[Rfam]
RNA sequence: UCCUCGCUCAAAGAAUCGCAACGAAGCACACAAACAGAGUGCUACCCAGCAUCUCUUCGCACGCGCUUUGGGAGAAAGUCCCCGGACAUCGAUUCCCUGUGGAUCGCACUUUCAGCAACGAACCGCCAUAGAAGCGCGGCCUCCUUACCGCCAUCGGCAUCCUUCGCUCUCUUUUCCGUCUGCACUCUUUUCCUUCGCUUUCUCGACGCCGUGGGUGGAGGGGCUGGCAUCUGGGCGAUGAUAUGAGUCCGUUGGCUACCUUGCUUGCGCUGCAGAGGGCAUGUUGAGGGAUAAGAGGAGGAAGGAGAUGUCGAGGAGUGUCGGGUAUGGAGGGUCUUCUCGUCCAGUUUAUGGUUAUGCGAUUGCCUCCUAGCGGUCCGGUAAAACGGGCCGUGUGGGAGGUAACUCAAUGGGGCUUAUUCUUGAUGCGAGG
Numbered sequence: 001u002c003c004u005c006g007c008u009c010a011a012a013g014a015a016u017c018g019c020a021a022c023g024a025a026g027c028a029c030a031c032a033a034a035c036a037g038a039g040u041g042c043u044a045c046c047c048a049g050c051a052u053c054u055c056u057u058c059g060c061a062c063g064c065g066c067u068u069u070g071g072g073a074g075a076a077a078g079u080c081c082c083c084g085g086a087c088a089u090c091g092a093u094u095c096c097c098u099g100u101g102g103a104u105c106g107c108a109c110u111u112u113c114a115g116c117a118a119c120g121a122a123c124c125g126c127c128a129u130a131g132a133a134g135c136g137c138g139g140c141c142u143c144c145u146u147a148c149c150g151c152c153a154u155c156g157g158c159a160u161c162c163u164u165c166g167c168u169c170u171c172u173u174u175u176c177c178g179u180c181u182g183c184a185c186u187c188u189u190u191u192c193c194u195u196c197g198c199u200u201u202c203u204c205g206a207c208g209c210c211g212u213g214g215g216u217g218g219a220g221g222g223g224c225u226g227g228c229a230u231c232u233g234g235g236c237g238a239u240g241a242u243a244u245g246a247g248u249c250c251g252u253u254g255g256c257u258a259c260c261u262u263g264c265u266u267g268c269g270c271u272g273c274a275g276a277g278g279g280c281a282u283g284u285u286g287a288g289g290g291a292u293a294a295g296a297g298g299a300g301g302a303a304g305g306a307g308a309u310g311u312c313g314a315g316g317a318g319u320g321u322c323g324g325g326u327a328u329g330g331a332g333g334g335u336c337u338u339c340u341c342g343u344c345c346a347g348u349u350u351a352u353g354g355u356u357a358u359g360c361g362a363u364u365g366c367c368u369c370c371u372a373g374c375g376g377u378c379c380g381g382u383a384a385a386a387c388g389g390g391c392c393g394u395g396u397g398g399g400a401g402g403u404a405a406c407u408c409a410a411u412g413g414g415g416c417u418u419a420u421u422c423u424u425g426a427u428g429c430g431a432g433g
Stems, first nucleotide, its partner, number of pairs: 002433006008426004014364006022070006037055003043049001076418003080415004099109003232251005254336003260332003264329001266327001268324001270318002273315001366402006